[Rfam]
RNA sequence: UUGCUAUAGGGUUGAAUGGGUCCCUUAGAUCAAACCCACAAAUCCAUCUCUCUCACUUUGUCAGCAGUAUUACCUUUUACUCCGUUUAUUGCUGAUCAUUAAGAGAUGGAACACUG
Numbered sequence: 001u002u003g004c005u006a007u008a009g010g011g012u013u014g015a016a017u018g019g020g021u022c023c024c025u026u027a028g029a030u031c032a033a034a035c036c037c038a039c040a041a042a043u044c045c046a047u048c049u050c051u052c053u054c055a056c057u058u059u060g061u062c063a064g065c066a067g068u069a070u071u072a073c074c075u076u077u078u079a080c081u082c083c084g085u086u087u088a089u090u091g092c093u094g095a096u097c098a099u100u101a102a103g104a105g106a107u108g109g110a111a112c113a114c115u116g
Stems, first nucleotide, its partner, number of pairs: 043110006060096010
Rfam assigns this 116-nucleotide RNA from Turnera subulata to the family "Small nucleolar RNA snoR99". Taxonomically the source falls in Turnera (Eukaryota, Streptophytina, fabids, Malpighiales). Gene Ontology terms of the family: RNA processing and nucleolus.